[Rfam]
RNA sequence: CUCGCACCUCAACCCAAGAAUCGCUGCUGCUUGUAGUGGCGGUUUAAACAGGGGUGCGCACAGCAAGGGGAUCUCGUCGCCUUUGGAGGGCUGUGGCCGUGCCCAUCAAAGUGAAUCUGGAGGUCCUACACCC
Numbered sequence: 001c002u003c004g005c006a007c008c009u010c011a012a013c014c015c016a017a018g019a020a021u022c023g024c025u026g027c028u029g030c031u032u033g034u035a036g037u038g039g040c041g042g043u044u045u046a047a048a049c050a051g052g053g054g055u056g057c058g059c060a061c062a063g064c065a066a067g068g069g070g071a072u073c074u075c076g077u078c079g080c081c082u083u084u085g086g087a088g089g090g091c092u093g094u095g096g097c098c099g100u101g102c103c104c105a106u107c108a109a110a111g112u113g114a115a116u117c118u119g120g121a122g123g124u125c126c127u128a129c130a131c132c133c
Stems, first nucleotide, its partner, number of pairs: 003058007019044010069126007081111006088104004
RNA: Small nucleolar RNA SNORA68